[Rfam]
RNA sequence: CCUGGCGAUGAUGACACACUUGCCCUCACUGAGAACACUGUUCGGUAAUGAGCCCCUCGCGCUCAGAUGAGCUGAGCCAGA
Numbered sequence: 001c002c003u004g005g006c007g008a009u010g011a012u013g014a015c016a017c018a019c020u021u022g023c024c025c026u027c028a029c030u031g032a033g034a035a036c037a038c039u040g041u042u043c044g045g046u047a048a049u050g051a052g053c054c055c056c057u058c059g060c061g062c063u064c065a066g067a068u069g070a071g072c073u074g075a076g077c078c079a080g081a
Stems, first nucleotide, its partner, number of pairs: 002080005

The family of this 81-nucleotide RNA sequence from Columba livia is "Small nucleolar RNA SNORD103/SNORD85".
It is annotated as a C/D-box small nucleolar RNA.